Rfam assigns this 139-nucleotide sequence from Enterococcus florum to the family "PyrR binding site". Lineage of the source: Bacteria > Bacillati > Bacillota > Bacilli > Enterococcus. Rfam classes the family as a cis-regulatory element.

[Rfam]
RNA sequence: AGAUCCUUUAAGAGUAGUCCCGUGAGGCUAAGAAGGGUGGAGAUAGAAGCUUGGACUAAGUGCGCUUAGGGUCAACUCUAUCAUUUUUGACGAAGUCGAUUAUAAUCCUCCUACCUGCAUGCGGGUAGGAGUUUUUUUU
Numbered sequence: 001a002g003a004u005c006c007u008u009u010a011a012g013a014g015u016a017g018u019c020c021c022g023u024g025a026g027g028c029u030a031a032g033a034a035g036g037g038u039g040g041a042g043a044u045a046g047a048a049g050c051u052u053g054g055a056c057u058a059a060g061u062g063c064g065c066u067u068a069g070g071g072u073c074a075a076c077u078c079u080a081u082c083a084u085u086u087u088u089g090a091c092g093a094a095g096u097c098g099a100u101u102a103u104a105a106u107c108c109u110c111c112u113a114c115c116u117g118c119a120u121g122c123g124g125g126u127a128g129g130a131g132u133u134u135u136u137u138u139u
Stems, first nucleotide, its partner, number of pairs: 003038007015030005070101004075096003079092001081090003105134001108131010